This 118-nucleotide sequence from Scopulibacillus darangshiensis belongs to the Rfam family "ylbH leader". On this family, see Barrick et al., Proc Natl Acad Sci U S A 2004: "New RNA motifs suggest an expanded scope for riboswitches in bacterial genetic control".
Nucleotides: 118
Stems, first nucleotide, its partner, number of pairs: 009030009034066004039054005078115001080113002083111001085109001088107005
Number, partner (000 for none) and nucleotide at each position: 001000a002000u003000a004000a005000a006000a007000a008000a009030a010029c011028c012027c013026g014025c015024a016023g017022u018000g019000a020000a021000a022017a023016c024015u025014g026013c027012g028011g029010g030009u031000u032000g033000c034066c035065u036064c037063a038000c039054g040053c041052a042051u043050a044000c045000g046000a047000u048000u049000g050043u051042a052041u053040g054039c055000c056000a057000a058000g059000a060000c061000a062000a063037u064036g065035g066034g067000a068000g069000a070000g071000g072000a073000g074000a075000a076000a077000c078115c079000g080113g081112c082000g083111g084000a085109a086000a087000a088107a089106c090105u091104u092103a093000u094000g095000g096000g097000g098000a099000a100000a101000c102000g103092u104091a105090a106089g107088u108000c109085u110000c111083c112081g113080c114000g115078g116000u117000c118000u

Overview:
It scores 75 bits against the family's covariance model. About the family: This family is a putative regulatory RNA structure that is found upstream of the ylbH gene in B. subtilis and related low GC Gram-positive bacteria. Its family is annotated with regulation of gene expression in the Gene Ontology. The family's RNA type in Rfam is cis-regulatory leader.